[Rfam]
RNA sequence: GGUAACGGUAGAGGCGCAUCGCCUAUCAGUAUCUCGUCUUAGGGUGACUCCCGAAGAGGUCGAGAGAAAGGAGUCGAUGCCGAAGUGGCAGGGGCGUCAUCCCCGGUCGCUGGGGCUGUAUCGAACAGGUGCAGCACUGCCAUGGUAAAUCCCAAACGGACCUUGGGGAUUAAAUUUACUGUGGAGCGCUACUGAAGGA
Numbered sequence: 001g002g003u004a005a006c007g008g009u010a011g012a013g014g015c016g017c018a019u020c021g022c023c024u025a026u027c028a029g030u031a032u033c034u035c036g037u038c039u040u041a042g043g044g045u046g047a048c049u050c051c052c053g054a055a056g057a058g059g060u061c062g063a064g065a066g067a068a069a070g071g072a073g074u075c076g077a078u079g080c081c082g083a084a085g086u087g088g089c090a091g092g093g094g095c096g097u098c099a100u101c102c103c104c105g106g107u108c109g110c111u112g113g114g115g116c117u118g119u120a121u122c123g124a125a126c127a128g129g130u131g132c133a134g135c136a137c138u139g140c141c142a143u144g145g146u147a148a149a150u151c152c153c154a155a156a157c158g159g160a161c162c163u164u165g166g167g168g169a170u171u172a173a174a175u176u177u178a179c180u181g182u183g184g185a186g187c188g189c190u191a192c193u194g195a196a197g198g199a
Stems, first nucleotide, its partner, number of pairs: 006194006016080006023073002032065005038059002084111006091104004112138002115135008140184011
RNA: Lysine riboswitch aptamer
Organism: Ferrimonas sediminicola